This 136-nucleotide RNA from Grallaria varia belongs to the Rfam family "Small nucleolar RNA SNORA41". Taxonomically the source falls in Grallaria (Eukaryota, Craniata, Archelosauria, Telluraves). ACA41 is a member of the H/ACA class of snoRNA that guide the sites of modification of uridines to pseudouridines. The match comes from Rfam's covariance-model search (91 bits). Gene Ontology terms of the family: RNA processing and nucleolus.
Nucleotides: 136
Base pairs, nucleotide, nucleotide: 003063004062005061006060017049018048019047021045022044023043024042025041077125078124079123081121091115092114093113094112095111097109098108
Number, partner (000 for none) and nucleotide at each position: 001000c002000u003063c004062c005061a006060c007000a008000g009000c010000u011000a012000c013000u014000g015000g016000u017049c018048u019047g020000g021045a022044a023043c024042u025041g026000u027000u028000c029000a030000g031000a032000a033000c034000u035000g036000u037000a038000u039000a040000a041025c042024a043023g044022u045021u046000g047019c048018a049017g050000u051000a052000u053000u054000c055000c056000c057000u058000c059000u060006g061005u062004g063003g064000g065000a066000a067000a068000u069000a070000a071000a072000c073000u074000g075000u076000u077125a078124c079123a080000c081121a082000g083000c084000a085000u086000u087000a088000a089000g090000c091115u092114c093113c094112u095111u096000c097109u098108c099000a100000g101000a102000u103000c104000c105000u106000c107000u108098g109097a110000a111095a112094a113093g114092g115091a116000c117000u118000u119000c120000c121081u122000a123079u124078g125077u126000a127000a128000c129000a130000a131000a132000c133000a134000u135000u136000c
The family's RNA type in Rfam is H/ACA-box small nucleolar RNA.